Overview: This 105-nucleotide RNA from Firmicutes bacterium CAG:536 belongs to the Rfam family "TPP riboswitch aptamer (THI element)".
[Rfam]
RNA sequence: CUGUAAAAAAGAGGGAGCUUGUAGCACAGGCUGAGAGGAAAGUAAGACUUUCGACCGUUACCUGAUUUGGAUAAUGCCAACGUAGGGAUCAUUCUUGUUUUUAAU
Numbered sequence: 001c002u003g004u005a006a007a008a009a010a011g012a013g014g015g016a017g018c019u020u021g022u023a024g025c026a027c028a029g030g031c032u033g034a035g036a037g038g039a040a041a042g043u044a045a046g047a048c049u050u051u052c053g054a055c056c057g058u059u060a061c062c063u064g065a066u067u068u069g070g071a072u073a074a075u076g077c078c079a080a081c082g083u084a085g086g087g088a089u090c091a092u093u094c095u096u097g098u099u100u101u102u103a104a105u
Base pairs, nucleotide, nucleotide: 006093007092010089011058013056014055017031018030019029020028021027038052039051040050041049042048061086062085063084064083067080068079069078070077
The organism belongs to Bacillota, within Bacteria.